[Rfam]
RNA sequence: CUAUAUGAACCCUGUAGAUCUGAAUUUGUGUGAAUGAAGCAGCAGCCACAAGUUCGUGUCUUGGGGAGAAUGUAGG
Numbered sequence: 001c002u003a004u005a006u007g008a009a010c011c012c013u014g015u016a017g018a019u020c021u022g023a024a025u026u027u028g029u030g031u032g033a034a035u036g037a038a039g040c041a042g043c044a045g046c047c048a049c050a051a052g053u054u055c056g057u058g059u060c061u062u063g064g065g066g067a068g069a070a071u072g073u074a075g076g
Base pairs, nucleotide, nucleotide: 002074003073004072005071006070010066011065012064016061017060018059019058021056022055023054024053025052026051027050028049029048030047

About this RNA: This 76-nucleotide sequence from Pleuronectes platessa belongs to the Rfam family "mir-10 microRNA precursor family". On this family, see Lee and Ambros, Science 2001: "An extensive class of small RNAs in Caenorhabditis elegans". The family's consensus secondary structure was predicted with PFOLD. Gene Ontology terms of the family: RISC complex and miRNA-mediated post-transcriptional gene silencing.